[Rfam]
RNA sequence: UGACCUCAAAUCAGGUAGGACUACCCGCUGAACUUAAGCAUAUCAAUAAGCGGAGGAAAAGAAACUAACAAGGAUUCCCCUAGUAACUGCGAGUGAACCGGGAAAAGCUCAAAUUUUGAAUCUGGCGGUCCUCGUGGCCGUCCGAGUUGUAAUCUAGAGAAGCGUCUUCCGCGCUGGACCGUGUAUAAGUUUCCUGGAAUGGAACGUCGUAGAGGGUGACAAUCCCGUCUUUGACACGGACUACCAGGGCUUUGUGAUGCGCUCUCGACGAGUCGAGUUGUUUGGGAAUGCAGCUCAAAUAGGGUGGUAAAUUCCAUCUAAAGCUAAAUACAGGCGAGAGACCGAUAGCGAACAAGUACCGUGAGGGAAAGAUGAAAAGAACUUUGGAAAGAGAGUUAAACAGUACGUGAAAUUGCUGAAAGGGAAA
Numbered sequence: 001u002g003a004c005c006u007c008a009a010a011u012c013a014g015g016u017a018g019g020a021c022u023a024c025c026c027g028c029u030g031a032a033c034u035u036a037a038g039c040a041u042a043u044c045a046a047u048a049a050g051c052g053g054a055g056g057a058a059a060a061g062a063a064a065c066u067a068a069c070a071a072g073g074a075u076u077c078c079c080c081u082a083g084u085a086a087c088u089g090c091g092a093g094u095g096a097a098c099c100g101g102g103a104a105a106a107g108c109u110c111a112a113a114u115u116u117u118g119a120a121u122c123u124g125g126c127g128g129u130c131c132u133c134g135u136g137g138c139c140g141u142c143c144g145a146g147u148u149g150u151a152a153u154c155u156a157g158a159g160a161a162g163c164g165u166c167u168u169c170c171g172c173g174c175u176g177g178a179c180c181g182u183g184u185a186u187a188a189g190u191u192u193c194c195u196g197g198a199a200u201g202g203a204a205c206g207u208c209g210u211a212g213a214g215g216g217u218g219a220c221a222a223u224c225c226c227g228u229c230u231u232u233g234a235c236a237c238g239g240a241c242u243a244c245c246a247g248g249g250c251u252u253u254g255u256g257a258u259g260c261g262c263u264c265u266c267g268a269c270g271a272g273u274c275g276a277g278u279u280g281u282u283u284g285g286g287a288a289u290g291c292a293g294c295u296c297a298a299a300u301a302g303g304g305u306g307g308u309a310a311a312u313u314c315c316a317u318c319u320a321a322a323g324c325u326a327a328a329u330a331c332a333g334g335c336g337a338g339a340g341a342c343c344g345a346u347a348g349c350g351a352a353c354a355a356g357u358a359c360c361g362u363g364a365g366g367g368a369a370a371g372a373u374g375a376a377a378a379g380a381a382c383u384u385u386g387g388a389a390a391g392a393g394a395g396u397u398a399a400a401c402a403g404u405a406c407g408u409g410a411a412a413u414u415g416c417u418g419a420a421a422g423g424g425a426a427a
Stems, first nucleotide, its partner, number of pairs: 024055001025053005035042002065072002076103004086094002106325004113153003117149003121145002124142006159266002161263004166259001168257002171250002174247004179239006189205001191204004208212001215225002275296007302319005359366002382393004
Record summary: A member of the RNA family "Eukaryotic large subunit ribosomal RNA" from Suillus discolor, 427 nucleotides of a longer RNA. The match comes from Rfam's covariance-model search (3372 bits). Its family is annotated with structural constituent of ribosome and ribosome in the Gene Ontology.